RNA sequence: CACCCCUGGCAAUGGACAAAGAGACACCUCAUUGGUGGUGGUGUCUUAAAAUCAGUCAGAGGCAGAGCAGAUGGUAAUUCUUUGCUUAUCCUAGCUAGAUGCCUGGCUCAGGGGCCAAAGGUGUUUCACACCUAGGGCACAAUC
Numbered sequence: 001c002a003c004c005c006c007u008g009g010c011a012a013u014g015g016a017c018a019a020a021g022a023g024a025c026a027c028c029u030c031a032u033u034g035g036u037g038g039u040g041g042u043g044u045c046u047u048a049a050a051a052u053c054a055g056u057c058a059g060a061g062g063c064a065g066a067g068c069a070g071a072u073g074g075u076a077a078u079u080c081u082u083u084g085c086u087u088a089u090c091c092u093a094g095c096u097a098g099a100u101g102c103c104u105g106g107c108u109c110a111g112g113g114g115c116c117a118a119a120g121g122u123g124u125u126u127c128a129c130a131c132c133u134a135g136g137g138c139a140c141a142a143u144c
Base pairs, nucleotide, nucleotide: 003062004061006059007058008057013054014053015052020047021046023042025040026039027038028037083139084138085137086136087135098132100130104128105127106126109123110122
Dot-bracket structure: ..((.(((....(((....((.(.((((........)))).)...))....)))..))).))....................(((((..........(.(...(((..((...........))..))).).)..))))).....